Background: Small nucleolar RNA SNORD100: an 85-nucleotide sequence from Cottoperca gobio. The source organism's lineage runs through Eukaryota, Craniata, Actinopterygii, Clupeocephala and Cottoperca. The match comes from Rfam's covariance-model search (62 bits). The family's consensus secondary structure was predicted with RNAalifold.
RNA sequence: UGUAUCGUUAAUGAUAUCUUGGCUCCCUCUACUGAACCCAUGUGUGGAAGCCUGCCAUUGUUGCCCAUUGUCUGUCUGAGAUGUG
Numbered sequence: 001u002g003u004a005u006c007g008u009u010a011a012u013g014a015u016a017u018c019u020u021g022g023c024u025c026c027c028u029c030u031a032c033u034g035a036a037c038c039c040a041u042g043u044g045u046g047g048a049a050g051c052c053u054g055c056c057a058u059u060g061u062u063g064c065c066c067a068u069u070g071u072c073u074g075u076c077u078g079a080g081a082u083g084u085g
Stems, first nucleotide, its partner, number of pairs: 001085006

On this family, see Huttenhofer et al., EMBO J 2001: "RNomics: an experimental approach that identifies 201 candidates for novel, small, non-messenger RNAs in mouse".